[Rfam]
Small nucleolar RNA U109: a 143-nucleotide RNA sequence from Sapajus apella. Pairs were carried over by alignment from the consensus structure, which was predicted with WAR. NCBI's taxonomy places the organism under Eukaryota, Chordata, Sarcopterygii, Primates, Sapajus. For this family Rfam cites "A novel experimental approach for systematic identification of box H/ACA snoRNAs from eukaryotes" (Gu et al., Nucleic Acids Res, 2005). Gene Ontology terms of the family: nucleolus and RNA processing. Rfam classes the family as an H/ACA-box small nucleolar RNA. The match comes from Rfam's covariance-model search (97 bits).

RNA sequence: CUGUAUGUGGAAAUGUCUGUUCUUCAUUCUUUUGGGAGCAGCAAUACAUAUAGAUAUUAAAAACAUGCCAUAUAUUAAAAGGAAUUCUUAGGGCUGCCAAUCUUAUAGUAAAGGUUGAAUAGUAGCAUAUAUCUCCUACAAAA
Dot-bracket structure: ..((((((........(((((((...........))))))).....................))))))............(((.........((...(((((((......)))))))....))..........))).......